RNA sequence: GGACCUAUGGCGCAGUGGUAGCGUAUCUGAUUCCAGUGAGUCUCGCUUGAAUCUCCAGAUGGUCAUCCGUUCGAAUCGGGUUAGGUUCA
Numbered sequence: 001g002g003a004c005c006u007a008u009g010g011c012g013c014a015g016u017g018g019u020a021g022c023g024u025a026u027c028u029g030a031u032u033c034c035a036g037u038g039a040g041u042c043u044c045g046c047u048u049g050a051a052u053c054u055c056c057a058g059a060u061g062g063u064c065a066u067c068c069g070u071u072c073g074a075a076u077c078g079g080g081u082u083a084g085g086u087u088c089a
Base pairs, nucleotide, nucleotide: 001088002087003086004085005084006083007082010024011023012022013021026059027058028057029056065081066080067079068078069077